Background
tRNA: an 88-nucleotide RNA sequence from Hydrogenobacter thermophilus. Taxonomically the source falls in Hydrogenobacter thermophilus (Bacteria, Aquificia, Aquificaceae, Hydrogenobacter). For this family Rfam cites "The tertiary structure of tRNA and the development of the genetic code" (Hou, Trends Biochem Sci, 1993). The family's consensus secondary structure is taken from published work.

RNA sequence: GGAGGGGUGGCCGAGUGGACGAAGGCGGGUGAUUUGAAAUCACCAGUGGGUUUACAGCCCACCGGGGGUUCGAAUCCCUCCCCCUCCG
Numbered sequence: 001g002g003a004g005g006g007g008u009g010g011c012c013g014a015g016u017g018g019a020c021g022a023a024g025g026c027g028g029g030u031g032a033u034u035u036g037a038a039a040u041c042a043c044c045a046g047u048g049g050g051u052u053u054a055c056a057g058c059c060c061a062c063c064g065g066g067g068g069u070u071c072g073a074a075u076c077c078c079u080c081c082c083c084c085u086c087c088g
Base pairs, nucleotide, nucleotide: 001087002086003085004084005083006082007081010026011025012024028044029043030042031041032040064080065079066078067077068076
Dot-bracket structure: (((((((..(((...........))).(((((.......)))))...................(((((.......)))))))))))).